[Rfam]
RNA sequence: ACCUGUCACCAGGGGUGCCCUUUGCGGCUGAGAGAAGAUUCGUUCAACCCUUAUAACCUGAUCGGGCUAGUACCUGCGUAGGAAGUGUUGUCAUGAAAACAA
Dot-bracket structure: .....(.((.((((..(((......)))......(((...).))...)))).....((((..((((......))))..))))....)).)............
RNA: TPP riboswitch aptamer (THI element)